[Rfam]
RNA: Cyano-1 RNA
Organism: Calothrix sp. NIES-3974
RNA sequence: GGGCGUGUGAGGAGUAAGCUGAAGUAAAAAACGUCUAGAGUGGAAACACGGCAACACGUCUAGGCGUUUUUUAUU
Numbered sequence: 001g002g003g004c005g006u007g008u009g010a011g012g013a014g015u016a017a018g019c020u021g022a023a024g025u026a027a028a029a030a031a032c033g034u035c036u037a038g039a040g041u042g043g044a045a046a047c048a049c050g051g052c053a054a055c056a057c058g059u060c061u062a063g064g065c066g067u068u069u070u071u072u073a074u075u
Base pairs, nucleotide, nucleotide: 028070029069030068031067032066035063036062037061038060039059040057041056042055